Shown here is a 97-nucleotide part of an RNA from Methanosalsum zhilinae, a member of the family "Archaeal large subunit ribosomal RNA". Lineage of the source: Archaea > Methanobacteriati > Methanosarcinaceae > Methanosalsum > Methanosalsum zhilinae.

[Rfam]
RNA sequence: GAUAUGGCAUUAAAGGAUCUGCAAUACGAAGGAAACCAUCGCGAGGUGGCAGUACGGGUAUUGUUGCCAGUGUCAUAUCAUACGUUUUGAAGAACGG
Numbered sequence: 001g002a003u004a005u006g007g008c009a010u011u012a013a014a015g016g017a018u019c020u021g022c023a024a025u026a027c028g029a030a031g032g033a034a035a036c037c038a039u040c041g042c043g044a045g046g047u048g049g050c051a052g053u054a055c056g057g058g059u060a061u062u063g064u065u066g067c068c069a070g071u072g073u074c075a076u077a078u079c080a081u082a083c084g085u086u087u088u089g090a091a092g093a094a095c096g097g
Stems, first nucleotide, its partner, number of pairs: 001079010015068002021064007031055001036049005083096003